[Rfam]
RNA sequence: CGUUCAUCCAGAGGGGGACGAGGGACCGGCCCUGUGACUCCCCGGCAACCGGCUGACAGCCAGACACGGUGCCACUUCCGGCUUCGGGCGAAAGUCGCCCGAGGACAGAUGAUGC
Numbered sequence: 001c002g003u004u005c006a007u008c009c010a011g012a013g014g015g016g017g018a019c020g021a022g023g024g025a026c027c028g029g030c031c032c033u034g035u036g037a038c039u040c041c042c043c044g045g046c047a048a049c050c051g052g053c054u055g056a057c058a059g060c061c062a063g064a065c066a067c068g069g070u071g072c073c074a075c076u077u078c079c080g081g082c083u084u085c086g087g088g089c090g091a092a093a094g095u096c097g098c099c100c101g102a103g104g105a106c107a108g109a110u111g112a113u114g115c
Stems, first nucleotide, its partner, number of pairs: 004112005013043001015042004022032003026081004044073004049069002051065001053063002077107001082104009
RNA: SAM riboswitch aptamer (S box leader)